[Rfam]
Rfam assigns this 45-nucleotide RNA to the family "Acido-Lenti-1 RNA". Rfam's curators put it in the seed alignment. Pairs were carried over by alignment from the consensus structure, which is taken from published work.

RNA sequence: CCAGGGAUUUCAUCCCUGGCUAAUAUAUUUCGUGCUUUCAGCACU
Number, nucleotide and partner (000 for none) at each position: 001c019002c018003a017004g016005g015006g014007a013008u012009u000010u000011c000012a008013u007014c006015c005016c004017u003018g002019g001020c000021u000022a000023a000024u000025a000026u000027a000028u000029u000030u000031c000032g044033u043034g042035c041036u040037u000038u000039c000040a036041g035042c034043a033044c032045u000